[Rfam]
RNA sequence: AAUAGGAGAAUGACAAAUCAUAUUUUUCUUUCUGAUCUUCAGCUUUUUCCUCUUCAAAAAUUUUAAAUUCAACAAAAAUUUUAAAAAUCAGGAAAAAAAAUCUGAUUUGUCAUUAUUCUAUU
Numbered sequence: 001a002a003u004a005g006g007a008g009a010a011u012g013a014c015a016a017a018u019c020a021u022a023u024u025u026u027u028c029u030u031u032c033u034g035a036u037c038u039u040c041a042g043c044u045u046u047u048u049c050c051u052c053u054u055c056a057a058a059a060a061u062u063u064u065a066a067a068u069u070c071a072a073c074a075a076a077a078a079u080u081u082u083a084a085a086a087a088u089c090a091g092g093a094a095a096a097a098a099a100a101u102c103u104g105a106u107u108u109g110u111c112a113u114u115a116u117u118c119u120a121u122u
Stems, first nucleotide, its partner, number of pairs: 001122007009114012022101006029094008038085002041082002045078004
RNA: MIR7504 microRNA precursor family